[Rfam]
RNA sequence: CGCUUAUCUAGAGCAGUCGAGGGACCCGGCCCGUUGACACUGCAGCAACCAACCACAAUGGAAAGGUGCUAACUCCGGCAGCGAAAGCUGGAAGAUAAGAG
Numbered sequence: 001c002g003c004u005u006a007u008c009u010a011g012a013g014c015a016g017u018c019g020a021g022g023g024a025c026c027c028g029g030c031c032c033g034u035u036g037a038c039a040c041u042g043c044a045g046c047a048a049c050c051a052a053c054c055a056c057a058a059u060g061g062a063a064a065g066g067u068g069c070u071a072a073c074u075c076c077g078g079c080a081g082c083g084a085a086a087g088c089u090g091g092a093a094g095a096u097a098a099g100a101g
Base pairs, nucleotide, nucleotide: 001101003099004098005097006096007095008094013043014042015041016040017039021032022031023030026078027077028076029075044070045069046068047067049066050065053061054060055059074093079090080089081088082087
Rfam assigns this 101-nucleotide sequence from Promineifilum breve to the family "SAM riboswitch aptamer (S box leader)". The source organism's lineage runs through Bacteria, Chloroflexota, Ardenticatenia, Promineifilales (SeqCode) and Promineifilum (SeqCode). It scores 79 bits against the family's covariance model. The base pairs follow the family's consensus structure, which is taken from published work.